[Rfam]
RNA sequence: GUUCUACUGCGGCGUUGGUGACUGCCAAUAACGUUUUUUUGAUCUAUGCCUUUACAACAAGGGAAUCGUCUCGACCGAUGGCAGUAGACCGGGCACGUACUCGGAAACUUUAAAUCGGCACCUCGAUACCCACCUGGUUUCUUACCAGGUCAAAAGCUGAGGCAAGACGGCGUUGCGGGGAACCC
Numbered sequence: 001g002u003u004c005u006a007c008u009g010c011g012g013c014g015u016u017g018g019u020g021a022c023u024g025c026c027a028a029u030a031a032c033g034u035u036u037u038u039u040u041g042a043u044c045u046a047u048g049c050c051u052u053u054a055c056a057a058c059a060a061g062g063g064a065a066u067c068g069u070c071u072c073g074a075c076c077g078a079u080g081g082c083a084g085u086a087g088a089c090c091g092g093g094c095a096c097g098u099a100c101u102c103g104g105a106a107a108c109u110u111u112a113a114a115u116c117g118g119c120a121c122c123u124c125g126a127u128a129c130c131c132a133c134c135u136g137g138u139u140u141c142u143u144a145c146c147a148g149g150u151c152a153a154a155a156g157c158u159g160a161g162g163c164a165a166g167a168c169g170g171c172g173u174u175g176c177g178g179g180g181a182a183c184c185c
Base pairs, nucleotide, nucleotide: 003182005180007178008177009176010175011174012173013172014171015170018168019167036156037155038154040152041151042150043149044148045147061131062130063129065127066126067125068124075118076117077116078115079114084108085107089104090103091102092101093100
The record is a 185-nucleotide RNA from Leptolyngbyaceae cyanobacterium M33_DOE_097, which matches "6S / SsrS RNA" in Rfam.
Rfam classes the family as a non-coding RNA gene.
The source organism's lineage runs through Bacteria, Bacillati, Cyanophyceae, Leptolyngbyales and Leptolyngbyaceae.